Source information:
Rfam assigns this 69-nucleotide RNA sequence from Bacteroides sp. An322 to the family "Bacteroidetes FopS (family of paralogous sRNAs)". Pairs were carried over by alignment from the consensus structure, which is taken from published work. The literature on the family includes a 2025 paper in Nat Commun by Ruttiger et al., "The global RNA-binding protein RbpB is a regulator of polysaccharide utilization in Bacteroides thetaiotaomicron". The match comes from Rfam's covariance-model search (77 bits). The RNA-binding protein RbpB and BTncRNA_FopS sRNA are involved in the post-transcription regulation of polysaccharide utilisation loci (PUL). FopS sRNAs function as post-transcriptional repressors by binding to the vicinity of the start codon of the first mRNA of target PUL polycistrons, typically corresponding to the cognate SusC homolog, impeding translation of the respective glycan transporter. The family's RNA type in Rfam is small RNA. NCBI's taxonomy places the organism under Bacteria, Pseudomonadati, Bacteroidota, Bacteroidia, Bacteroides.
[Rfam]
RNA sequence: GUGUUUUUCAUGGUAUUAGAUUUAAGGUUAAUGAAGAUUGGGAAUCUGGGAAGAUUCCCUUUUUUUAUG
Numbered sequence: 001g002u003g004u005u006u007u008u009c010a011u012g013g014u015a016u017u018a019g020a021u022u023u024a025a026g027g028u029u030a031a032u033g034a035a036g037a038u039u040g041g042g043a044a045u046c047u048g049g050g051a052a053g054a055u056u057c058c059c060u061u062u063u064u065u066u067a068u069g
Stems, first nucleotide, its partner, number of pairs: 040059007